[Rfam]
RNA sequence: UUUAGAUGAUUUGAAUUGAUAAGCUGAGGCUCUAUGAGGAAUGACGAUUCAUAGCAUGUUAAAGUUAUUAUGAAA
Numbered sequence: 001u002u003u004a005g006a007u008g009a010u011u012u013g014a015a016u017u018g019a020u021a022a023g024c025u026g027a028g029g030c031u032c033u034a035u036g037a038g039g040a041a042u043g044a045c046g047a048u049u050c051a052u053a054g055c056a057u058g059u060u061a062a063a064g065u066u067a068u069u070a071u072g073a074a075a
Base pairs, nucleotide, nucleotide: 001074002073003072004071
Rfam assigns this 75-nucleotide RNA from Saimiri boliviensis to the family "Small nucleolar RNA SNORD28".
The family has 20 seed sequences and 229 matches in Rfam 15.1.
It is annotated as a C/D-box small nucleolar RNA.